[Rfam]
RNA sequence: CUCCUGAUUGUCCAAACGCAAUUCUUGUCCAGAAAAACAUGCAAACCAAGAAUUGUGUCUGGACAUCGGUGGCUGA
Numbered sequence: 001c002u003c004c005u006g007a008u009u010g011u012c013c014a015a016a017c018g019c020a021a022u023u024c025u026u027g028u029c030c031a032g033a034a035a036a037a038c039a040u041g042c043a044a045a046c047c048a049a050g051a052a053u054u055g056u057g058u059c060u061g062g063a064c065a066u067c068g069g070u071g072g073c074u075g076a
Stems, first nucleotide, its partner, number of pairs: 001072002005068004010064005017057011
The family of this 76-nucleotide sequence from Ophiophagus hannah is "mir-219 microRNA precursor family". Pairs were carried over by alignment from the consensus structure, which was predicted with RNAalifold. The organism belongs to Ophiophagus, within Eukaryota.